[Rfam]
RNA sequence: CCCUUAUCAAGAGAGGCGGAGGGAUUAGGCCCUGCGAUGCCCGGCAACCUAUGUGUUUUAUGGUGAAGUAUAAAAUAUAAAAGGUGCCAAUUCCUACAGAUUGGUUGAAAUCUGAGAGAUGAGGA
Number, nucleotide and partner (000 for none) at each position: 001c000002c124003c123004u122005u121006a120007u119008c118009a000010a000011g000012a000013g042014a000015g041016g040017c039018g000019g000020a000021g032022g031023g030024a000025u000026u096027a095028g094029g093030c023031c022032c021033u000034g000035c000036g000037a000038u000039g017040c016041c015042c013043g088044g087045c086046a085047a000048c084049c083050u080051a000052u000053g000054u000055g000056u000057u000058u000059u000060a000061u000062g000063g000064u000065g000066a000067a000068g000069u000070a000071u000072a000073a000074a000075a000076u000077a000078u000079a000080a050081a000082a000083g049084g048085u046086g045087c044088c043089a000090a000091u000092u117093c029094c028095u027096a026097c114098a113099g112100a111101u110102u109103g000104g000105u000106u000107g000108a000109a102110a101111u100112c099113u098114g097115a000116g000117a092118g008119a007120u006121g005122a004123g003124g002125a000
Notes
The record is a 125-nucleotide RNA sequence from Clostridium aminobutyricum, which matches "SAM riboswitch aptamer (S box leader)" in Rfam. Rfam 15.1 lists 9,625 matches to the family in 4,158 species. Lineage of the source: Bacteria > Bacillati > Bacillota > Clostridiaceae > Clostridium. It scores 83 bits against the family's covariance model.